RNA sequence: AUGCCAGCCAAUAAGUCUGCUUAUCCGAAUGUGUUUCUGCAGAAAUUUAGAAAAAGCUGGCAAUCGUAAUGCCAUUUUAUGAGCCUCAGUGACAACUGAGAUCAUUAAGGUCCCUGAAAAUGACUACAAUA
Numbered sequence: 001a002u003g004c005c006a007g008c009c010a011a012u013a014a015g016u017c018u019g020c021u022u023a024u025c026c027g028a029a030u031g032u033g034u035u036u037c038u039g040c041a042g043a044a045a046u047u048u049a050g051a052a053a054a055a056g057c058u059g060g061c062a063a064u065c066g067u068a069a070u071g072c073c074a075u076u077u078u079a080u081g082a083g084c085c086u087c088a089g090u091g092a093c094a095a096c097u098g099a100g101a102u103c104a105u106u107a108a109g110g111u112c113c114c115u116g117a118a119a120a121u122g123a124c125u126a127c128a129a130u131a
Base pairs, nucleotide, nucleotide: 003061004060005059006058007057016043017042018041019040020039071124073122074121083111084110085109086108088106089105091103092102